Record summary
Shown here is a 354-nucleotide RNA from Salinisphaera shabanensis, a member of the family "Bacterial RNase P class A".

RNA sequence: GGAGUCGGCCACGCAAUCGCGGUGUCCACACGUGGGCACGGAGGAAAGUCCGGGCUCCAUAGGGCAGGAUGCCAGGUAACGCCUGGGAGGCGUGAGCCUACGGAAAGUGCAACAGAGAGUAGACCGCCGAUGGCUCGUUCGCGAGCCAGGUAAGGGUGAAAGGGUGCGGUAAGAGCGCACCGCGCGUCCGGCAACGGUUCGCGGCACGGUAAACCCCAUCCGGAGCAAGACCAAAUAGGAGGACGACGUGCGGCCCGCACAGUCCUCGGGUAGGUCGCAAGAGGCAUGCGGUAACGCAUGUCCCAGAUGAAUGAUUGCGUACGACAGAACCCGGCUUAUCGGCCGACUCCGAAC
Numbered sequence: 001g002g003a004g005u006c007g008g009c010c011a012c013g014c015a016a017u018c019g020c021g022g023u024g025u026c027c028a029c030a031c032g033u034g035g036g037c038a039c040g041g042a043g044g045a046a047a048g049u050c051c052g053g054g055c056u057c058c059a060u061a062g063g064g065c066a067g068g069a070u071g072c073c074a075g076g077u078a079a080c081g082c083c084u085g086g087g088a089g090g091c092g093u094g095a096g097c098c099u100a101c102g103g104a105a106a107g108u109g110c111a112a113c114a115g116a117g118a119g120u121a122g123a124c125c126g127c128c129g130a131u132g133g134c135u136c137g138u139u140c141g142c143g144a145g146c147c148a149g150g151u152a153a154g155g156g157u158g159a160a161a162g163g164g165u166g167c168g169g170u171a172a173g174a175g176c177g178c179a180c181c182g183c184g185c186g187u188c189c190g191g192c193a194a195c196g197g198u199u200c201g202c203g204g205c206a207c208g209g210u211a212a213a214c215c216c217c218a219u220c221c222g223g224a225g226c227a228a229g230a231c232c233a234a235a236u237a238g239g240a241g242g243a244c245g246a247c248g249u250g251c252g253g254c255c256c257g258c259a260c261a262g263u264c265c266u267c268g269g270g271u272a273g274g275u276c277g278c279a280a281g282a283g284g285c286a287u288g289c290g291g292u293a294a295c296g297c298a299u300g301u302c303c304c305a306g307a308u309g310a311a312u313g314a315u316u317g318c319g320u321a322c323g324a325c326a327g328a329a330c331c332c333g334g335c336u337u338a339u340c341g342g343c344c345g346a347c348u349c350c351g352a353a354c
Base pairs, nucleotide, nucleotide: 001350002349003348004347005346006345007344008343009342010341011339012319013318014317015316016315017314018313020041022039023038024037025036026035027034028033046337047336048335050334051333052332053331054330055225056224057223058222062256063255064254065253067221068220069219070218071217072086073085074084075083076082087101088099089098090097091096102216103215107214108213109210110209124155125154126151127150128149132147133146134145135144136143137142163181164180165179166178167177168176182205183203184202185201186200188197189196190195229276230275231274232273239267240266241265242264243263244262248260249259250258251257283302284301285300286299287298288297289296290295
Rfam classes the family as a ribozyme. Ribonuclease P (RNase P) is a ubiquitous endoribonuclease, found in archaea, bacteria and eukarya as well as chloroplasts and mitochondria.